[Rfam]
RNA sequence: UGUAAAAAUUUCAUCCAUUUCUACUUCUAAAAACUGCUCUCUGUCGUCAGCAUGAGGUACAUGUGGCAUGCCAUAUGUCGUUGUUUGGUUAUUUUGUCAUCCAUGCCAAUUUUUAACAGUAGAAAUAGAUGAAUUUUUUAACA
Numbered sequence: 001u002g003u004a005a006a007a008a009u010u011u012c013a014u015c016c017a018u019u020u021c022u023a024c025u026u027c028u029a030a031a032a033a034c035u036g037c038u039c040u041c042u043g044u045c046g047u048c049a050g051c052a053u054g055a056g057g058u059a060c061a062u063g064u065g066g067c068a069u070g071c072c073a074u075a076u077g078u079c080g081u082u083g084u085u086u087g088g089u090u091a092u093u094u095u096g097u098c099a100u101c102c103a104u105g106c107c108a109a110u111u112u113u114u115a116a117c118a119g120u121a122g123a124a125a126u127a128g129a130u131g132a133a134u135u136u137u138u139u140a141a142c143a
Stems, first nucleotide, its partner, number of pairs: 002142001003140006010133006017126009028115005
The family of this 143-nucleotide RNA sequence from Gossypium trilobum is "MIR7502 microRNA precursor family". The organism belongs to Gossypium, within Eukaryota. Its family is annotated with miRNA-mediated post-transcriptional gene silencing and RISC complex in the Gene Ontology. The family's consensus secondary structure was predicted with RNAalifold. A search with the family's covariance model found it, with a score of 79 bits.